This 136-nucleotide sequence from Aquisalimonas asiatica belongs to the Rfam family "RtT RNA".
Lineage of the source: Bacteria > Pseudomonadota > Gammaproteobacteria > Ectothiorhodospiraceae > Aquisalimonas.
Gene Ontology term of the family: cellular response to amino acid starvation.
It scores 58 bits against the family's covariance model.
The family has 57 seed sequences and 651 matches in Rfam 15.1.
About the family: This family represents a bacterial cis-regulatory element known as RtT RNA. The exact function of RtT is unknown although it is thought that it may be involved in changing the cellular response in relation to amino acid starvation.
[Rfam]
RNA sequence: AGCGAAGGCUCCCAGGGGAGGGUUCGGACCGAGAGAGGUUCGAGCGGCUUGCGAAGCAAGCCACAACGUCGCCGCGCAGCGGCGGCGGCCCGGAGGGCGAGGCGCGCAGCGCCGAGUAAUCCUCCCCCCUCCACCA
Dot-bracket structure: ..............(((((((.(......((.......((((...(((((.......))))).......((((((......))))))...))))...))...................).))))))).........
Numbered sequence: 001a002g003c004g005a006a007g008g009c010u011c012c013c014a015g016g017g018g019a020g021g022g023u024u025c026g027g028a029c030c031g032a033g034a035g036a037g038g039u040u041c042g043a044g045c046g047g048c049u050u051g052c053g054a055a056g057c058a059a060g061c062c063a064c065a066a067c068g069u070c071g072c073c074g075c076g077c078a079g080c081g082g083c084g085g086c087g088g089c090c091c092g093g094a095g096g097g098c099g100a101g102g103c104g105c106g107c108a109g110c111g112c113c114g115a116g117u118a119a120u121c122c123u124c125c126c127c128c129c130u131c132c133a134c135c136a
Stems, first nucleotide, its partner, number of pairs: 015127007023119001030099002039094004046062005070087006